[Rfam]
RNA sequence: GUGUGCCUGGCUCCCUGUAUGCCAUUUGUAGAGCUCGUCAAAACAUUGACAGCCUUAACAAAUGGCGUGCGAGGAGCCAUGCAUGC
Numbered sequence: 001g002u003g004u005g006c007c008u009g010g011c012u013c014c015c016u017g018u019a020u021g022c023c024a025u026u027u028g029u030a031g032a033g034c035u036c037g038u039c040a041a042a043a044c045a046u047u048g049a050c051a052g053c054c055u056u057a058a059c060a061a062a063u064g065g066c067g068u069g070c071g072a073g074g075a076g077c078c079a080u081g082c083a084u085g086c
Stems, first nucleotide, its partner, number of pairs: 001086006008079007016071009027060003
mir-160 microRNA precursor family: an 86-nucleotide sequence from Arachis hypogaea. The match comes from Rfam's covariance-model search (79 bits). For this family Rfam cites "Prediction of plant microRNA targets" (Rhoades et al., Cell, 2002). The base pairs follow the family's consensus structure, which was predicted with PFOLD.